RNA sequence: CGCGAGGGACGACCCUCACGCUAGCAUACGAUUCCGGGACGGCCCGG
Numbered sequence: 001c002g003c004g005a006g007g008g009a010c011g012a013c014c015c016u017c018a019c020g021c022u023a024g025c026a027u028a029c030g031a032u033u034c035c036g037g038g039a040c041g042g043c044c045c046g047g
Stems, first nucleotide, its partner, number of pairs: 001020002004017005034047005

A member of the RNA family "Guanidine-II riboswitch aptamer (mini-ykkC)" from Pseudaminobacter salicylatoxidans, 47 nucleotides long. About the family: Simpler in structure and has fewer highly conserved nucleotide positions than the ykkC-yxkD leader. Despite this each of its two stem-loop structures directly bind free guanidine. Therefore, mini-ykkC RNA motif represents a distinct class of guanidine-sensing RNAs. Its crystal structure was also determined.